[Rfam]
RNA sequence: AGGCAGCCUCCUUGUCAAAAGUUAAAACAAUGACAUGUAAGAGGUGUUUAAUUACUCCUACAAUGAACUCUUGUUUCUGCUCUUCAGACUUGCUGAGAUAUUUUUAUGUCUUUGAAGCUGGUCUAGUAGUCUUGAGCACAUU
Numbered sequence: 001a002g003g004c005a006g007c008c009u010c011c012u013u014g015u016c017a018a019a020a021g022u023u024a025a026a027a028c029a030a031u032g033a034c035a036u037g038u039a040a041g042a043g044g045u046g047u048u049u050a051a052u053u054a055c056u057c058c059u060a061c062a063a064u065g066a067a068c069u070c071u072u073g074u075u076u077c078u079g080c081u082c083u084u085c086a087g088a089c090u091u092g093c094u095g096a097g098a099u100a101u102u103u104u105u106a107u108g109u110c111u112u113u114g115a116a117g118c119u120g121g122u123c124u125a126g127u128a129g130u131c132u133u134g135a136g137c138a139c140a141u142u
Stems, first nucleotide, its partner, number of pairs: 002048004007044002009039001011037001013035005074136003079131001081129001086124005092118003097110003
Dot-bracket structure: .((((.(((.(.(((((.............))))).).)...)))))).........................(((..(.(....(((((.(((..(((........))).....))).)))))....).)..)))......

Rfam assigns this 142-nucleotide sequence from Capsella rubella to the family "Small nucleolar RNA snoR77". The base pairs follow the family's consensus structure, which was predicted with WAR. Lineage of the source: Eukaryota > Streptophyta > Streptophytina > Spermatophyta > Capsella. The family has 5 seed sequences and 649 matches in Rfam 15.1. It is annotated as an H/ACA-box small nucleolar RNA. The literature on the family includes a 2002 paper in Curr Biol by Marker et al., "Experimental RNomics: identification of 140 candidates for small non-messenger RNAs in the plant Arabidopsis thaliana".